[Rfam]
RNA sequence: GUUGCUUGUAAUCUUCAAGAUUGGUUGAAGAGCAUCCACCUAAAGACCCACAUCUUUAGUCACCAGGCAAA
Dot-bracket structure: .(((((((...(((((((......))))))).........((((((......)))))).....))))))).
RNA: 2dG-II purine riboswitch aptamer